[Rfam]
RNA: ZMP/ZTP riboswitch aptamer (pfl RNA motif)
RNA sequence: GGUCACGGCCGCGACUGGCGCGCAAGAUGGAGGACCAUCGGGGAGCGGCCGAUACCGCUGCGUCGCACGCCUGGGCACGGCAG
Numbered sequence: 001g002g003u004c005a006c007g008g009c010c011g012c013g014a015c016u017g018g019c020g021c022g023c024a025a026g027a028u029g030g031a032g033g034a035c036c037a038u039c040g041g042g043g044a045g046c047g048g049c050c051g052a053u054a055c056c057g058c059u060g061c062g063u064c065g066c067a068c069g070c071c072u073g074g075g076c077a078c079g080g081c082a083g
Base pairs, nucleotide, nucleotide: 003054006051007050008049009048010047011046012045015042016041017071018070019069020068027038028037029036030035060078062076063075064074